Small Cajal body-specific RNA 7: a 317-nucleotide sequence from Aquarana catesbeiana. The pairing is the family consensus, mapped onto this sequence. The literature on the family includes a 2002 paper in EMBO J by Darzacq et al., "Cajal body-specific small nuclear RNAs: a novel class of 2'-O-methylation and pseudouridylation guide RNAs". Gene Ontology terms of the family: RNA processing and nucleolus. NCBI's taxonomy places the organism under Eukaryota, Bilateria, Batrachia, Ranidae, Aquarana.
RNA sequence: UGAGAAUGAGUCAUUAGUAUUAUAUACAUAUGAAAAAAAAAGUUAGAUGUUUGUAGUCUAUACGUUUAAUUUAUUUACAUAUAAAAAUGUUUGUAUUGAUAUUAAGUGUGAGUGUUUGGAUGUGUGUGUUGGGUUAUACAGGGGGACUCUGAAAUUACAUUGCUGAUUUCGGAGUGCAUCUGAGGACUGUUGCAAACUAAGGGGCUUUCAUGCAGCAAUUCCUGUGAUUAUGGCCCUUUGUUGGGUCUCCUUGAUGACCUUUAAACCCUAAAUCUCUAACAGAUAUGCUUUACAAUGUGUAUCUGUGAUCUGACCAA
Numbered sequence: 001u002g003a004g005a006a007u008g009a010g011u012c013a014u015u016a017g018u019a020u021u022a023u024a025u026a027c028a029u030a031u032g033a034a035a036a037a038a039a040a041a042g043u044u045a046g047a048u049g050u051u052u053g054u055a056g057u058c059u060a061u062a063c064g065u066u067u068a069a070u071u072u073a074u075u076u077a078c079a080u081a082u083a084a085a086a087a088u089g090u091u092u093g094u095a096u097u098g099a100u101a102u103u104a105a106g107u108g109u110g111a112g113u114g115u116u117u118g119g120a121u122g123u124g125u126g127u128g129u130u131g132g133g134u135u136a137u138a139c140a141g142g143g144g145g146a147c148u149c150u151g152a153a154a155u156u157a158c159a160u161u162g163c164u165g166a167u168u169u170c171g172g173a174g175u176g177c178a179u180c181u182g183a184g185g186a187c188u189g190u191u192g193c194a195a196a197c198u199a200a201g202g203g204g205c206u207u208u209c210a211u212g213c214a215g216c217a218a219u220u221c222c223u224g225u226g227a228u229u230a231u232g233g234c235c236c237u238u239u240g241u242u243g244g245g246u247c248u249c250c251u252u253g254a255u256g257a258c259c260u261u262u263a264a265a266c267c268c269u270a271a272a273u274c275u276c277u278a279a280c281a282g283a284u285a286u287g288c289u290u291u292a293c294a295a296u297g298u299g300u301a302u303c304u305g306u307g308a309u310c311u312g313a314c315c316a317a
Base pairs, nucleotide, nucleotide: 001316002315004314188217189216190215191214192213193212194208195207196206197204198203